[Rfam]
RNA sequence: GCUGUAAAGUGUGCAUAGUUGUCAUCUGUGUCUGAUAGCAAUAUCUGUCUGAGUUUUUCAUUCAGAUCUGUUAUCCACACAAAUAGCAUGUAGCCAAAUAGUAACUUGGGAUCAUAGUACUGGUUUAGUGUUGUGUCUUUGGACAUACCUACCACUGGCCAGCCUCCAAAUUCCCAGACACAG
Numbered sequence: 001g002c003u004g005u006a007a008a009g010u011g012u013g014c015a016u017a018g019u020u021g022u023c024a025u026c027u028g029u030g031u032c033u034g035a036u037a038g039c040a041a042u043a044u045c046u047g048u049c050u051g052a053g054u055u056u057u058u059c060a061u062u063c064a065g066a067u068c069u070g071u072u073a074u075c076c077a078c079a080c081a082a083a084u085a086g087c088a089u090g091u092a093g094c095c096a097a098a099u100a101g102u103a104a105c106u107u108g109g110g111a112u113c114a115u116a117g118u119a120c121u122g123g124u125u126u127a128g129u130g131u132u133g134u135g136u137c138u139u140u141g142g143a144c145a146u147a148c149c150u151a152c153c154a155c156u157g158g159c160c161a162g163c164c165u166c167c168a169a170a171u172u173c174c175c176a177g178a179c180a181c182a183g
Stems, first nucleotide, its partner, number of pairs: 013091004029081003033077002036073005043067005050060003107176005120162006127156004132147006